Shown here is a 79-nucleotide RNA sequence from Salmo salar, a member of the family "mir-16 microRNA precursor family". It scores 39 bits against the family's covariance model.
Nucleotides: 079
Base pairs, nucleotide, nucleotide: 001079002078003077005075007073010072011069012068014066015065016064017063018062022058023057024056025055026054027053028052029051
Number, partner (000 for none) and nucleotide at each position: 001079a002078g003077a004000u005075g006000a007073c008000u009000a010072u011069a012068u013000c014066g015065g016064u017063a018062c019000g020000c021000u022058a023057a024056u025055a026054c027053a028052g029051g030000a031000g032000u033000a034000g035000u036000a037000a038000g039000g040000c041000c042000u043000u044000u045000a046000c047000u048000a049000c050000u051029c052028c053027u054026g055025u056024a057023u058022u059000a060000a061000c062018g063017u064016a065015c066014c067000a068012a069011u070000a071000u072010a073007g074000c075005c076000a077003u078002c079001u